About this RNA
MIR7486 microRNA precursor family: an 87-nucleotide RNA sequence from Gossypium aridum.
RNA sequence: CCUGGGGGCGUGCUUUGCUUACGUGGACACAAAGCGCUCUUACGAGGACGGGCUUUGUUCCCAAGUAGGCAAAGUGCGCCCCCGGGG
Numbered sequence: 001c002c003u004g005g006g007g008g009c010g011u012g013c014u015u016u017g018c019u020u021a022c023g024u025g026g027a028c029a030c031a032a033a034g035c036g037c038u039c040u041u042a043c044g045a046g047g048a049c050g051g052g053c054u055u056u057g058u059u060c061c062c063a064a065g066u067a068g069g070c071a072a073a074g075u076g077c078g079c080c081c082c083c084g085g086g087g
Base pairs, nucleotide, nucleotide: 001086002085003084004083005082006081007080008079009078010077011076012075013074014073015072016071017070018069019068020067021066024063025062026061029058030057031056032055033054034053035052037050040047041046